Overview:
A member of the RNA family "RAGATH-18 RNA", 73 nucleotides long. The base pairs follow the family's consensus structure, which is taken from published work. Rfam's curators write: Actinobacteria, Firmicutes, Fusobacteria, Thermotogae (1 example).
RNA sequence: ACUGUGGAGUGUACUUUGGAUCUGCCGGUAGCAGAUGGAAACAUCUGCGAAAGCAUACACGUUGAAGCAGUAA
Numbered sequence: 001a002c003u004g005u006g007g008a009g010u011g012u013a014c015u016u017u018g019g020a021u022c023u024g025c026c027g028g029u030a031g032c033a034g035a036u037g038g039a040a041a042c043a044u045c046u047g048c049g050a051a052a053g054c055a056u057a058c059a060c061g062u063u064g065a066a067g068c069a070g071u072a073a
Base pairs, nucleotide, nucleotide: 001071002070003069004068005067009060010059011058012057013056023055024054025053031048032047033046036043037042